[Rfam]
RNA sequence: AAAGCAGGUUGCAAUUACAGUGCUUCAUUUUGUGGGAUUGCUGCCAUUAUCCUCUGCUGAAAGAGGCUUGUGUUGAUCAUUUUUGAUUUUGCCUAUAUGAGGGUAAAAUCAUUACAGAUUGACAUGGACAAUU
Numbered sequence: 001a002a003a004g005c006a007g008g009u010u011g012c013a014a015u016u017a018c019a020g021u022g023c024u025u026c027a028u029u030u031u032g033u034g035g036g037a038u039u040g041c042u043g044c045c046a047u048u049a050u051c052c053u054c055u056g057c058u059g060a061a062a063g064a065g066g067c068u069u070g071u072g073u074u075g076a077u078c079a080u081u082u083u084u085g086a087u088u089u090u091g092c093c094u095a096u097a098u099g100a101g102g103g104u105a106a107a108a109u110c111a112u113u114a115c116a117g118a119u120u121g122a123c124a125u126g127g128a129c130a131a132u133u
Stems, first nucleotide, its partner, number of pairs: 003058004007052002018043005024037003068127011084111011
Dot-bracket structure: ..((((((.........(((((.(((........))).))))).......))..)))).........(((((((((((.....(((((((((((......))))))))))).....)))))))))))......
Shown here is a 133-nucleotide RNA sequence from Pteropus alecto, a member of the family "Small nucleolar RNA SNORA69". It scores 122 bits against the family's covariance model. Taxonomically the source falls in Pteropus (Eukaryota, Bilateria, Gnathostomata, Laurasiatheria). U69 is a member of the H/ACA class of small nucleolar RNAs (snoRNAs) which act as guides in the the modification of uridines to pseudouridines. Rfam links the family to the GO terms nucleolus and RNA processing. The family's RNA type in Rfam is H/ACA-box small nucleolar RNA.